[Rfam]
RNA: L31-Actinobacteria ribosomal protein leader
Organism: Bifidobacterium tsurumiense
RNA sequence: CAGGUUCCGGUUCACGCCCACCACAGGGGUGUGGCGACCCGGGUCC
Numbered sequence: 001c002a003g004g005u006u007c008c009g010g011u012u013c014a015c016g017c018c019c020a021c022c023a024c025a026g027g028g029g030u031g032u033g034g035c036g037a038c039c040c041g042g043g044u045c046c
Base pairs, nucleotide, nucleotide: 003046004045007042008041009040010039015036016035017034018033019031020030021029022028